[Rfam]
RNA sequence: GGUUUAAUUACCCAAGUUUAAGACAAUUGAAUGUUUCGGCCUGGAGUUUAAGCUACUGCGGCUUGAAAAUUUGGAACGUCAUGCAUGUUUGUGGGACAAU
Numbered sequence: 001g002g003u004u005u006a007a008u009u010a011c012c013c014a015a016g017u018u019u020a021a022g023a024c025a026a027u028u029g030a031a032u033g034u035u036u037c038g039g040c041c042u043g044g045a046g047u048u049u050a051a052g053c054u055a056c057u058g059c060g061g062c063u064u065g066a067a068a069a070u071u072u073g074g075a076a077c078g079u080c081a082u083g084c085a086u087g088u089u090u091g092u093g094g095g096a097c098a099a100u
Stems, first nucleotide, its partner, number of pairs: 003031007012022001034068004039062003078097003082093003